Shown here is a 166-nucleotide RNA sequence from Leucobacter luti, a member of the family "M-box riboswitch aptamer (ykoK leader)". The base pairs follow the family's consensus structure. The match comes from Rfam's covariance-model search (127 bits). M-box riboswitch, also know as ykoK leader is described as a metaloregulatory RNA that sense divalent metals and function as a genetic control element of genes related to divalent metal transport in bacteria. It was first reported upstream of the B.subtilis ykoK gene and genes with related functions in other bacteria.

[Rfam]
RNA sequence: GAAGCGCUUCGUUCGGUGAGGCUCUUGCACGAACACAGGCCACUGAUCUGCAGGCAUCGAGAGAUGUUCAAGAUCAGGACAGGUGCCCUCGGAUUAAGGGGGUAUCCCAAGUGGCUGCCAUCUGGAUACGUCGUGCAAUGCCGAAGCUCUGACAUGGAAGCGCCUG
Numbered sequence: 001g002a003a004g005c006g007c008u009u010c011g012u013u014c015g016g017u018g019a020g021g022c023u024c025u026u027g028c029a030c031g032a033a034c035a036c037a038g039g040c041c042a043c044u045g046a047u048c049u050g051c052a053g054g055c056a057u058c059g060a061g062a063g064a065u066g067u068u069c070a071a072g073a074u075c076a077g078g079a080c081a082g083g084u085g086c087c088c089u090c091g092g093a094u095u096a097a098g099g100g101g102g103u104a105u106c107c108c109a110a111g112u113g114g115c116u117g118c119c120a121u122c123u124g125g126a127u128a129c130g131u132c133g134u135g136c137a138a139u140g141c142c143g144a145a146g147c148u149c150u151g152a153c154a155u156g157g158a159a160g161c162g163c164c165u166g
Base pairs, nucleotide, nucleotide: 005162006161007160008159009158010157011153012152013097015148016147017146020142021141022140025138026137027136028135029134030133031132032131039115040114041113042112043111045075046074047073048072049071055066056065057064058063082106083105084104085103088100089099090098118125119124